[Rfam]
RNA sequence: UAUCUUUGCGGCCUGGUUGAAAAUCAAUCAUGUACAUAAAAAUCAUUAAAAUAAUAUUGGAAUG
Numbered sequence: 001u002a003u004c005u006u007u008g009c010g011g012c013c014u015g016g017u018u019g020a021a022a023a024u025c026a027a028u029c030a031u032g033u034a035c036a037u038a039a040a041a042a043u044c045a046u047u048a049a050a051a052u053a054a055u056a057u058u059g060g061a062a063u064g
Stems, first nucleotide, its partner, number of pairs: 014030006
The family of this 64-nucleotide RNA is "S15-Flavobacteria ribosomal protein leader". The base pairs follow the family's consensus structure, which is taken from published work. For this family Rfam cites "Discovery of 20 novel ribosomal leader candidates in bacteria and archaea" (Eckert and Weinberg, BMC Microbiol, 2020). It is one of the family's seed sequences.